[Rfam]
RNA: Small nucleolar RNA R32/R81/Z41
Organism: Cannabis sativa
RNA sequence: GUGUGAAAAUGAUGAAAGAGAUUUAUAAAGAGUGAUGAUUACUUAUUGUUUUUGAUGUGAUCAUAAAUAUACUCGCUACGUUCUUUCUGAUUCACUG
Numbered sequence: 001g002u003g004u005g006a007a008a009a010u011g012a013u014g015a016a017a018g019a020g021a022u023u024u025a026u027a028a029a030g031a032g033u034g035a036u037g038a039u040u041a042c043u044u045a046u047u048g049u050u051u052u053u054g055a056u057g058u059g060a061u062c063a064u065a066a067a068u069a070u071a072c073u074c075g076c077u078a079c080g081u082u083c084u085u086u087c088u089g090a091u092u093c094a095c096u097g
Base pairs, nucleotide, nucleotide: 004094005093006092007091